[Rfam]
Burkholderia RNA 7 (anti-hemB): an 81-nucleotide RNA sequence from Formosimonas limnophila. The family's consensus secondary structure is taken from published work. Rfam describes the family as follows. This RNA motif was identified by computational search in b-proteobacteria Burkholderia. Co-purified with Hfq, expression confirmed by Northern blot. The source organism's lineage runs through Bacteria, Pseudomonadati, Betaproteobacteria, Burkholderiaceae and Formosimonas.

RNA sequence: UCCCCUGCUUUUCCUCCCUAAGCAGGGUGGUCAUUCAUAAUGACGUUAUUCCCCAAGUCCUUGGACUUGGGGCUUUUUUUU
Numbered sequence: 001u002c003c004c005c006u007g008c009u010u011u012u013c014c015u016c017c018c019u020a021a022g023c024a025g026g027g028u029g030g031u032c033a034u035u036c037a038u039a040a041u042g043a044c045g046u047u048a049u050u051c052c053c054c055a056a057g058u059c060c061u062u063g064g065a066c067u068u069g070g071g072g073c074u075u076u077u078u079u080u081u
Base pairs, nucleotide, nucleotide: 004026005025006024007023008022009021030044031043032042033041034040051072052071053070054069055068056067057066058065